Rfam assigns this 132-nucleotide sequence from Oryctolagus cuniculus to the family "Small nucleolar RNA SNORA42/SNORA80 family". Rfam describes the family as follows. The members of this family belong to the H/ACA class of snoRNAs that guide the sites of modification of uridines to pseudouridines. Human ACA42 (SNORA42) was cloned from HeLa cells by immunoprecipitation with anti-GAR1 antibody. Its is predicted to guide the pseudouridylation of residues U109 and U572 of 18S rRNA. ACA42 shares the same host gene with ACA26, ACA46, ACA50. This family also includes mammalian snoRNA ACA67 (SNORA80) which was identified by computational screening and its expression in mouse experimentally verified by Northern blot and primer extension analysis. ACA67 is proposed to guide the pseudouridylation of the same 18S rRNA residues as ACA42. The base pairs follow the family's consensus structure, which was predicted with RNAalifold. Rfam links the family to the GO terms RNA processing and nucleolus.
RNA sequence: GCAUGGGCUUGGAUUUAUGACAGGCCUGUUCCCCUGAGUUCUCAUAGUGUCCACGCCAGAGCAAAACGUGACCCUGAACCAUUAUCUAGCCUCUGUCCAUAGGUUGCCGGCACUGAAGCAGGUUGCACAAUA
Numbered sequence: 001g002c003a004u005g006g007g008c009u010u011g012g013a014u015u016u017a018u019g020a021c022a023g024g025c026c027u028g029u030u031c032c033c034c035u036g037a038g039u040u041c042u043c044a045u046a047g048u049g050u051c052c053a054c055g056c057c058a059g060a061g062c063a064a065a066a067c068g069u070g071a072c073c074c075u076g077a078a079c080c081a082u083u084a085u086c087u088a089g090c091c092u093c094u095g096u097c098c099a100u101a102g103g104u105u106g107c108c109g110g111c112a113c114u115g116a117a118g119c120a121g122g123u124u125g126c127a128c129a130a131u132a
Stems, first nucleotide, its partner, number of pairs: 001056002004053005015047006022040002026036001069125005080115002085110002087106006